RNA: Plant small nucleolar RNA R71
Organism: Apium graveolens
Nucleotides: 107
Stems, first nucleotide, its partner, number of pairs: 003105002005102002057074002
Number, partner (000 for none) and nucleotide at each position: 001000a002000u003105g004104c005102c006101a007000u008000g009000a010000u011000g012000a013000g014000g015000a016000c017000a018000c019000u020000u021000c022000c023000u024000a025000a026000g027000c028000a029000u030000c031000u032000c033000c034000u035000u036000g037000u038000a039000g040000c041000a042000c043000u044000c045000u046000c047000a048000a049000a050000c051000u052000u053000c054000a055000c056000a057074u058073a059000g060000a061000g062000u063000u064000u065000c066000u067000c068000c069000c070000g071000a072000u073058u074057a075000c076000u077000g078000c079000g080000c081000a082000a083000a084000a085000u086000g087000a088000g089000u090000a091000a092000g093000a094000g095000c096000a097000u098000u099000c100000c101006u102005g103000a104004g105003u106000g107000c